[Rfam]
Record summary:
MIR159 microRNA precursor family: a 240-nucleotide sequence from Musa troglodytarum. For this family Rfam cites "Computational identification of plant microRNAs and their targets, including a stress-induced miRNA" (Jones-Rhoades and Bartel, Mol Cell, 2004).
RNA sequence: AUAUGUGUGAGAGAGCUUCCUUCAGUCCACUCAUGGAUGGUAUUGGGGUUUGAAUCAGCUGCCGACUCAUUCAUUCACACACUCAGUAGAAAGGAAGUGACAGUUCUCGCCGCCACAACAGCAGACAGGAGAGGUCUCGGACUUGAGCUACCUACUGUGUGAAUGAGUGAAUGAUGCGGGAGAUUAUUCUCUCUCUUCCAUUCCAUACUUGGACUGAAGGGAGCUCCUCUUUCUCAUCUU
Number, nucleotide and partner (000 for none) at each position: 001a000002u000003a000004u000005g000006u000007g000008u000009g000010a000011g000012a000013g226014a225015g224016c223017u222018u221019c220020c219021u000022u000023c216024a215025g214026u213027c212028c211029a210030c000031u000032c000033a000034u000035g000036g203037a000038u000039g000040g000041u000042a000043u000044u000045g000046g000047g000048g000049u000050u000051u000052g000053a000054a000055u000056c000057a000058g000059c182060u181061g000062c179063c178064g177065a000066c000067u000068c173069a172070u171071u170072c000073a000074u000075u000076c165077a000078c000079a000080c000081a000082c000083u000084c000085a000086g000087u000088a000089g000090a000091a000092a000093g000094g000095a000096a000097g000098u000099g000100a000101c000102a000103g000104u000105u000106c000107u000108c000109g000110c000111c000112g000113c000114c000115a000116c000117a000118a000119c000120a000121g000122c000123a000124g000125a000126c000127a000128g000129g000130a000131g000132a000133g000134g000135u000136c000137u000138c000139g000140g000141a000142c000143u000144u000145g000146a000147g000148c000149u000150a000151c000152c000153u000154a000155c000156u000157g000158u000159g000160u000161g000162a000163a000164u000165g076166a000167g000168u000169g000170a071171a070172u069173g068174a000175u000176g000177c064178g063179g062180g000181a060182g059183a000184u000185u000186a000187u000188u000189c000190u000191c000192u000193c000194u000195c000196u000197u000198c000199c000200a000201u000202u000203c036204c000205a000206u000207a000208c000209u000210u029211g028212g027213a026214c025215u024216g023217a000218a000219g020220g019221g018222a017223g016224c015225u014226c013227c000228u000229c000230u000231u000232u000233c000234u000235c000236a000237u000238c000239u000240u000
NCBI's taxonomy places the organism under Eukaryota, Embryophyta, commelinids, Zingiberales, Musa. Gene Ontology terms of the family: RISC complex and miRNA-mediated post-transcriptional gene silencing.